Rfam assigns this 63-nucleotide RNA sequence from Pseudoalteromonas piratica to the family "Pseudomonas sRNA P26". A search with the family's covariance model found it, with a score of 45 bits. By type it is a non-coding RNA gene. Rfam's curators write: This small RNA (sRNA) was computationally identified in the genome of the opportunistic pathogen Pseudomonas aeruginosa and its expression verified by northern blot analysis. P26 is conserved across many Gammaproteobacteria species and appears to be consistently located between the DNA directed RNA polymerase (beta subunit) and 50S ribosomal protein L7/L12 genes. Lineage of the source: Bacteria > Pseudomonadota > Gammaproteobacteria > Alteromonadales > Pseudoalteromonas.
RNA sequence: AUGCUAGAUUAGCUGCCUGACCAAAAAUCAGGCAAGGGCUGGUGAAUUUUUAUUCACCGGCCU
Numbered sequence: 001a002u003g004c005u006a007g008a009u010u011a012g013c014u015g016c017c018u019g020a021c022c023a024a025a026a027a028u029c030a031g032g033c034a035a036g037g038g039c040u041g042g043u044g045a046a047u048u049u050u051u052a053u054u055c056a057c058c059g060g061c062c063u
Stems, first nucleotide, its partner, number of pairs: 014034005037062010